[Rfam]
RNA sequence: CUUUGAUAAAGGCAAACUUAUUGAAAAAUAAGGACGCAAAACUAAAGGUCUAAAGUCCUGGUUAGGGAACUAUGAUCGCCGGGUUGCCGAA
Numbered sequence: 001c002u003u004u005g006a007u008a009a010a011g012g013c014a015a016a017c018u019u020a021u022u023g024a025a026a027a028a029u030a031a032g033g034a035c036g037c038a039a040a041a042c043u044a045a046a047g048g049u050c051u052a053a054a055g056u057c058c059u060g061g062u063u064a065g066g067g068a069a070c071u072a073u074g075a076u077c078g079c080c081g082g083g084u085u086g087c088c089g090a091a
Stems, first nucleotide, its partner, number of pairs: 012037002017032006040085004047079001048076003055070002058067001